[Rfam]
Nucleotides: 086
Base pairs, nucleotide, nucleotide: 001081002080003079004078005077006076007075011073013072014071015070016069022067024065025064026063027042028041029040030039031038032037045055046054047053
Number, partner (000 for none) and nucleotide at each position: 001081g002080a003079c004078g005077g006076u007075c008000a009000a010000g011073c012000g013072c014071a015070g016069c017000g018000c019000g020000u021000g022067u023000a024065g025064a026063g027042g028041u029040c030039u031038c032037c033000g034000c035000a036000a037032g038031g039030a040029g041028g042027c043000a044000g045055c046054c047053c048000u049000g050000a051000a052000u053047g054046g055045g056000u057000g058000g059000g060000a061000u062000c063026c064025u065024u066000g067022a068000a069016g070015c071014u072013g073011g074000g075007g076006g077005c078004c079003g080002u081001c082000g083000c084000c085000a086000a
Rfam assigns this 86-nucleotide sequence from Mitsuaria sp. 7 to the family "DUF3800-VII RNA". The organism belongs to Roseateles, within Bacteria. A search with the family's covariance model found it, with a score of 59 bits.